Shown here is a 213-nucleotide RNA sequence from Candida viswanathii, a member of the family "U2 spliceosomal RNA". Taxonomically the source falls in Candida (Eukaryota, Dikarya, saccharomyceta, Pichiomycetes). For this family Rfam cites "A conserved pseudouridine modification in eukaryotic U2 snRNA induces a change in branch-site architecture" (Newby and Greenbaum, RNA, 2001). Gene Ontology terms of the family: U2 snRNP, mRNA branch site recognition and pre-mRNA branch point binding. Rfam describes the family as follows. U2 is a small nuclear RNA (snRNA) component of the spliceosome (involved in pre-mRNA splicing). Complementary binding between U2 snRNA (in an area lying towards the 5' end but 3' to hairpin I) and the branchpoint sequence (BPS) of the intron results the bulging out of an unpaired adenosine, on the BPS, which initiates a nucleophilic attack at the intronic 5' splice site, thus starting the first of two transesterification reactions that mediate splicing. A search with the family's covariance model found it, with a score of 104 bits. Pairs were carried over by alignment from the consensus structure, which is taken from published work.
[Rfam]
RNA sequence: AUCUCUUUGCCAUUUGGCUUAGAUCCAGUGUAGUAUCUGUUCUUUUCAGUGUAACAGCUGAAAUGUCAUCAUUGAUGACUUUACAUUAUGUUACAAAUUAUACUUAUUUUUGGAUAUUGGGUAGAUUGAUUUAUUAAAGUGGGCUUGCUCACAGUCUUUCUACACAGUGUCGUUGCCACUGUACUUUUAUUUUGGCUCCUGACGCAAAUUCCC
Numbered sequence: 001a002u003c004u005c006u007u008u009g010c011c012a013u014u015u016g017g018c019u020u021a022g023a024u025c026c027a028g029u030g031u032a033g034u035a036u037c038u039g040u041u042c043u044u045u046u047c048a049g050u051g052u053a054a055c056a057g058c059u060g061a062a063a064u065g066u067c068a069u070c071a072u073u074g075a076u077g078a079c080u081u082u083a084c085a086u087u088a089u090g091u092u093a094c095a096a097a098u099u100a101u102a103c104u105u106a107u108u109u110u111u112g113g114a115u116a117u118u119g120g121g122u123a124g125a126u127u128g129a130u131u132u133a134u135u136a137a138a139g140u141g142g143g144c145u146u147g148c149u150c151a152c153a154g155u156c157u158u159u160c161u162a163c164a165c166a167g168u169g170u171c172g173u174u175g176c177c178a179c180u181g182u183a184c185u186u187u188u189a190u191u192u193u194g195g196c197u198c199c200u201g202a203c204g205c206a207a208a209u210u211c212c213c
Stems, first nucleotide, its partner, number of pairs: 004023003009018003044063006065079006121163005128156001140151004167205005172199001175196003